[Rfam]
RNA sequence: UGGACCAUGAUGAUGACUAGUGGUACAAAGUCAUAGAUGAUGAAUAAUAUUUGUGCGGAACUCUGAGGGCCAG
Numbered sequence: 001u002g003g004a005c006c007a008u009g010a011u012g013a014u015g016a017c018u019a020g021u022g023g024u025a026c027a028a029a030g031u032c033a034u035a036g037a038u039g040a041u042g043a044a045u046a047a048u049a050u051u052u053g054u055g056c057g058g059a060a061c062u063c064u065g066a067g068g069g070c071c072a073g
Stems, first nucleotide, its partner, number of pairs: 002071002005068002
Notes
The family of this 73-nucleotide RNA sequence from Vulpes vulpes is "Small nucleolar RNA SNORD113/SNORD114 family". The match comes from Rfam's covariance-model search (48 bits). Rfam classes the family as a C/D-box small nucleolar RNA. Its family is annotated with nucleolus and RNA processing in the Gene Ontology. The organism belongs to Vulpes, within Eukaryota. On this family, see Cavaille et al., Hum Mol Genet 2002: "Identification of tandemly-repeated C/D snoRNA genes at the imprinted human 14q32 domain reminiscent of those at the Prader-Willi/Angelman syndrome region". The imprinted human domain at 14q32 contains two clusters of tandemly repeated small nucleolar RNAs named 14q(I) and 14q(II) snoRNAs. These two clusters are named SNORD113 and SNORD114 respectively in the HGNC approved gene symbol nomenclature. The snoRNAs found in both clusters are clearly related and are represented here by a single family.